[Rfam]
Rfam assigns this 129-nucleotide RNA sequence from Pseudoxanthomonas suwonensis to the family "SAH (S-adenosyl-L-homocysteine) riboswitch aptamer".
RNA sequence: CCCGCCGAGGGGCGCUGCGACCGUGGACCGGGCGGGACUUCCGCCGGAACCCGCACCGAGGUGCGGAGCUUUCCGAUCCACGGCCAGGCUCGGCAUGGCACACCCUAGCGACAACGGCGCCCGGCGAAA
Dot-bracket structure: ...(((((............((((((...................................................))))))......)))))...................................

The source organism's lineage runs through Bacteria, Gammaproteobacteria, Lysobacterales, Lysobacteraceae and Pseudoxanthomonas. A search with the family's covariance model found it, with a score of 43 bits. Gene Ontology terms of the family: regulation of gene expression and S-adenosylhomocysteine metabolic process.